[Rfam]
Nucleotides: 064
Stems, first nucleotide, its partner, number of pairs: 001064004006059008015050004020045002024041004029036002
Number, partner (000 for none) and nucleotide at each position: 001064g002063g003062c004061c005000a006059c007058c008057c009056u010055c011054u012053g013052c014000a015050g016049g017048g018047c019000a020045a021044u022000c023000a024041a025040u026039c027038a028000g029036g030035g031000g032000g033000c034000u035030c036029c037000a038027u039026g040025a041024u042000c043000a044021a045020u046000c047018g048017c049016c050015c051000c052013g053012c054011a055010g056009a057008g058007g059006g060000a061004g062003g063002c064001c
Overview:
Rfam assigns this 64-nucleotide sequence from Myotis brandtii to the family "mir-9242 microRNA precursor family". NCBI's taxonomy places the organism under Eukaryota, Chordata, Dipnotetrapodomorpha, Eutheria, Myotis. Gene Ontology terms of the family: RISC complex and miRNA-mediated post-transcriptional gene silencing.